[Rfam]
Annotation
The record is a 105-nucleotide RNA from Prunus avium, which matches "MIR6274 microRNA precursor family" in Rfam. Pairs were carried over by alignment from the consensus structure, which was predicted with RNAalifold.

RNA sequence: GGAUAACACCUUUUGUUAUUUCCGACCAAUAACUCAAUGAUACGUAGGAUAACUUUUCAAUGUAUCAUUGUGUUAUUGUCCGAGAAUAGCAAAAUAGUGAUAUCC
Number, nucleotide and partner (000 for none) at each position: 001g000002g104003a103004u102005a101006a000007c000008a000009c000010c000011u094012u093013u092014u091015g090016u089017u088018a087019u086020u000021u084022c000023c082024g081025a000026c000027c078028a077029a076030u075031a074032a073033c072034u000035c070036a069037a068038u067039g066040a065041u064042a063043c062044g061045u060046a000047g058048g057049a056050u000051a000052a000053c000054u000055u000056u049057u048058c047059a000060a045061u044062g043063u042064a041065u040066c039067a038068u037069u036070g035071u000072g033073u032074u031075a030076u029077u028078g027079u000080c000081c024082g023083a000084g021085a000086a019087u018088a017089g016090c015091a014092a013093a012094a011095u000096a000097g000098u000099g000100a000101u005102a004103u003104c002105c000